[Rfam]
RNA sequence: GAGCUGCCUCCGCUGAAUCCGACCGCAAGGCCGGAACCGGGGACCCACGCGCACGACUUGGGGUGAAUCGGGGCGAACGUCCGCACAACGGACGCGAGCACCGUAGGGCGGCCUUCCAUCGCCCGAACCCGUCAGCUAACCCGGUAAGCGGUCCACGGAAGGAAU
Numbered sequence: 001g002a003g004c005u006g007c008c009u010c011c012g013c014u015g016a017a018u019c020c021g022a023c024c025g026c027a028a029g030g031c032c033g034g035a036a037c038c039g040g041g042g043a044c045c046c047a048c049g050c051g052c053a054c055g056a057c058u059u060g061g062g063g064u065g066a067a068u069c070g071g072g073g074c075g076a077a078c079g080u081c082c083g084c085a086c087a088a089c090g091g092a093c094g095c096g097a098g099c100a101c102c103g104u105a106g107g108g109c110g111g112c113c114u115u116c117c118a119u120c121g122c123c124c125g126a127a128c129c130c131g132u133c134a135g136c137u138a139a140c141c142c143g144g145u146a147a148g149c150g151g152u153c154c155a156c157g158g159a160a161g162g163a164a165u
Base pairs, nucleotide, nucleotide: 011150012149013148014147018035019034020033036145037144038143039142040141041140046060047059061130062129063128069103070102071101106124107123108122109121
Dot-bracket structure: ..........((((...(((............)))((((((....((...........))(((.....(((.............................)))..((((...........))))...))).........)))))).))))...............